[Rfam]
RNA: MIR397 microRNA precursor family
RNA sequence: AGCAAGGGCGUAAUUGGGUGCAGUGCUGGUGAACCUUUGAGCCAGUUUCAGACUUUUAGGUUCAUCAACGCUGCACUCAAUGAUGCCUUUG
Dot-bracket structure: .....((((((.(((((((((((((.((.(((((((.....................))))))).)).))))))))))))).))))))...